[Rfam]
RNA sequence: CUGCGUUAAAGGCAAACCUGUACGAAAGUCAGGGACGCAAAGCCAAGGGUCUACGGUCCGCAAGCGCGAACUAGGACAGCCGGUUGCUCAC
Numbered sequence: 001c002u003g004c005g006u007u008a009a010a011g012g013c014a015a016a017c018c019u020g021u022a023c024g025a026a027a028g029u030c031a032g033g034g035a036c037g038c039a040a041a042g043c044c045a046a047g048g049g050u051c052u053a054c055g056g057u058c059c060g061c062a063a064g065c066g067c068g069a070a071c072u073a074g075g076a077c078a079g080c081c082g083g084u085u086g087c088u089c090a091c
Stems, first nucleotide, its partner, number of pairs: 012038002017033004022029002041085004047081002049077003056071002059068003